[Rfam]
Rfam assigns this 75-nucleotide sequence from Xanthomonas oryzae to the family "Xanthomonas sRNA sX9".
It scores 74 bits against the family's covariance model.
RNA sequence: AUGUACCAGUGUGCACUCCGGUUCCUGCGCGCCGUCCACGCCCACCUGACGACUGCUCGCGACGUCUUGGUAACC
Numbered sequence: 001a002u003g004u005a006c007c008a009g010u011g012u013g014c015a016c017u018c019c020g021g022u023u024c025c026u027g028c029g030c031g032c033c034g035u036c037c038a039c040g041c042c043c044a045c046c047u048g049a050c051g052a053c054u055g056c057u058c059g060c061g062a063c064g065u066c067u068u069g070g071u072a073a074c075c
Stems, first nucleotide, its partner, number of pairs: 002015005019034004024029001047072002050069003
The organism belongs to Xanthomonas oryzae pv. oryzae, within Bacteria. The family's consensus secondary structure was predicted with RNAalifold.